[Rfam]
RNA sequence: CCGAAAUCCUGAACAGUGUUUUAGACUUUUG
Numbered sequence: 001c002c003g004a005a006a007u008c009c010u011g012a013a014c015a016g017u018g019u020u021u022u023a024g025a026c027u028u029u030u031g
Base pairs, nucleotide, nucleotide: 001031003029004028005027007025009024010023011022012021013020014018
The family of this 31-nucleotide RNA from Sitta europaea is "Iron response element II". For this family Rfam cites "A cytosolic protein binds to structural elements within the iron regulatory region of the transferrin receptor mRNA" (Koeller et al., Proc Natl Acad Sci U S A, 1989). The match comes from Rfam's covariance-model search (32 bits). By type it is a cis-regulatory element. Rfam links the family to the GO term response to iron ion.